[Rfam]
RNA: Streptomyces RNA 6106
Organism: Streptomyces sp. 1-11
RNA sequence: GCGUCGCCCGAGGGCGGCGUUCUGGCCUUUCAACGGGCCCGUUCGGCGGGGGUGGUGCCGUGUCGGCGCAGCACCACCCCCGUCCG
Dot-bracket structure: (((((((......)))))))..((((((......))).)))....(((((((((((((.(((....))).)))))))))))))...